[Rfam]
RNA sequence: UCAGAAUUUAUCGAUAUACAAUACUCAUGUCGAUAAAAUGAUUUGAAUCAUUU
Number, nucleotide and partner (000 for none) at each position: 001u000002c000003a000004g000005a000006a000007u000008u000009u000010a000011u033012c032013g031014a030015u029016a028017u027018a000019c000020a000021a000022u000023a000024c000025u000026c000027a017028u016029g015030u014031c013032g012033a011034u000035a000036a000037a000038a000039u000040g000041a000042u000043u000044u000045g000046a000047a000048u000049c000050a000051u000052u000053u000
Source information: Plastid-atpF group II-D1 intron: a 53-nucleotide RNA from Carnegiea gigantea. The base pairs follow the family's consensus structure, which was predicted with LocARNA. On this family, see Richter et al., Plant Commun 2023: "Retrograde signaling in plants: A critical review focusing on the GUN pathway and beyond". About the family: Plastid atpF is a non-coding RNA (ncRNA) recognised in plastids. It has been reported in the intron group II-D1 region of ATP synthase (atpF) genes. The organism belongs to Carnegiea, within Eukaryota.